The record is an 86-nucleotide sequence from Rhodoferax sp. OV413, which matches "Burkholderia RNA 7 (anti-hemB)" in Rfam. Rfam 15.1 lists 479 matches to the family in 458 species. About the family: This RNA motif was identified by computational search in b-proteobacteria Burkholderia. Co-purified with Hfq, expression confirmed by Northern blot. It scores 57 bits against the family's covariance model.
[Rfam]
RNA sequence: UCUCCCGCUUUACCUCCCUGAGCGGGGCCUCACGGUUUAAUAACCCGCGGGCUUAAAGCCUCGGCCGAUGGCCGGGGCAUUUUUUU
Numbered sequence: 001u002c003u004c005c006c007g008c009u010u011u012a013c014c015u016c017c018c019u020g021a022g023c024g025g026g027g028c029c030u031c032a033c034g035g036u037u038u039a040a041u042a043a044c045c046c047g048c049g050g051g052c053u054u055a056a057a058g059c060c061u062c063g064g065c066c067g068a069u070g071g072c073c074g075g076g077g078c079a080u081u082u083u084u085u086u
Stems, first nucleotide, its partner, number of pairs: 004026006027052004033047003058078008
Dot-bracket structure: ...((((((...........))))))((((..(((.........))).)))).....((((((((.....))))))))........